[Rfam]
RNA sequence: CAAGCAUGAAUGCUGCUAUUUUCCGCUUCUUUUUUUACUUUAGCGCCUGACUCAGGGGGCUUUGCGCGUAAGAAAAGAAACGAAAAAAAGCGCCGAAAGCCUCCUGUCUGGAGGCUUUUUUUUU
Numbered sequence: 001c002a003a004g005c006a007u008g009a010a011u012g013c014u015g016c017u018a019u020u021u022u023c024c025g026c027u028u029c030u031u032u033u034u035u036u037a038c039u040u041u042a043g044c045g046c047c048u049g050a051c052u053c054a055g056g057g058g059g060c061u062u063u064g065c066g067c068g069u070a071a072g073a074a075a076a077g078a079a080a081c082g083a084a085a086a087a088a089a090g091c092g093c094c095g096a097a098a099g100c101c102u103c104c105u106g107u108c109u110g111g112a113g114g115c116u117u118u119u120u121u122u123u124u
Stems, first nucleotide, its partner, number of pairs: 015091003020086003024082002027079007035071004041054001055065001057063002096118009
A member of the RNA family "Phenylalanine leader peptide" from Cedecea neteri, 124 nucleotides long. The organism belongs to Cedecea, within Bacteria. For this family Rfam cites "Nucleotide sequence of the leader region of the phenylalanine operon of Escherichia coli" (Zurawski et al., Proc Natl Acad Sci U S A, 1978).